This 54-nucleotide RNA sequence from Afipia sp. Root123D2 belongs to the Rfam family "terC RNA". The match comes from Rfam's covariance-model search (55 bits). The family's consensus secondary structure is taken from published work. The source organism's lineage runs through Bacteria, Pseudomonadati, Alphaproteobacteria, Hyphomicrobiales and Afipia.
RNA sequence: CGACCAGGCCGGGCCCCUCUGGCAGCCAAGUGGCUGUGAUGUCGGACUGGAAUU
Numbered sequence: 001c002g003a004c005c006a007g008g009c010c011g012g013g014c015c016c017c018u019c020u021g022g023c024a025g026c027c028a029a030g031u032g033g034c035u036g037u038g039a040u041g042u043c044g045g046a047c048u049g050g051a052a053u054u
Base pairs, nucleotide, nucleotide: 006048007047009045010044011043012042022037023036024035025034026033027032